[Rfam]
RNA sequence: ACCUUCCUUGUCUUGGGGUUGUGUGGCUGUUCAAUGAACGUUUAGUGAGAGUAGCCAUGCUAACACCAUACCAACACAUUCGCAUCACCUGAGCGUUAGCUUGGGCUACGGUGCAAUUUUUGGAACC
Numbered sequence: 001a002c003c004u005u006c007c008u009u010g011u012c013u014u015g016g017g018g019u020u021g022u023g024u025g026g027c028u029g030u031u032c033a034a035u036g037a038a039c040g041u042u043u044a045g046u047g048a049g050a051g052u053a054g055c056c057a058u059g060c061u062a063a064c065a066c067c068a069u070a071c072c073a074a075c076a077c078a079u080u081c082g083c084a085u086c087a088c089c090u091g092a093g094c095g096u097u098a099g100c101u102u103g104g105g106c107u108a109c110g111g112u113g114c115a116a117u118u119u120u121u122g123g124a125a126c127c
Stems, first nucleotide, its partner, number of pairs: 006018004021060004026055007038046002082114005089104006
A member of the RNA family "U4atac minor spliceosomal RNA" from Acipenser ruthenus, 127 nucleotides long. Rfam's curators write: U4atac is an essential component of the minor U12-type spliceosome complex which is required for removal of the rarer class of eukaryotic introns (AT-AC, U12-type). The source organism's lineage runs through Eukaryota, Vertebrata, Actinopterygii, Actinopteri and Acipenser. Rfam links the family to the GO terms pre-mRNA 5'-splice site binding, U4atac snRNP and mRNA 5'-splice site recognition. For this family Rfam cites "Evolutionary conservation of minor U12-type spliceosome between plants and humans" (Lorkovic et al., RNA, 2005). The family has 61 seed sequences and 1,648 matches in Rfam 15.1.